Transposase-2 RNA: a 70-nucleotide RNA from Thermaerobacter subterraneus.

[Rfam]
RNA sequence: GAAGCGGGAAGCCGGCACCGGCGCAUGGCCGGGUAAGACCGGCACCGCCGAUCCGCAAGGAUCGGCUGCC
Numbered sequence: 001g002a003a004g005c006g007g008g009a010a011g012c013c014g015g016c017a018c019c020g021g022c023g024c025a026u027g028g029c030c031g032g033g034u035a036a037g038a039c040c041g042g043c044a045c046c047g048c049c050g051a052u053c054c055g056c057a058a059g060g061a062u063c064g065g066c067u068g069c070c
Stems, first nucleotide, its partner, number of pairs: 011043005018032005047066008

The base pairs follow the family's consensus structure, which is taken from published work. Lineage of the source: Bacteria > Bacillati > Eubacteriales > Thermaerobacter > Thermaerobacter subterraneus.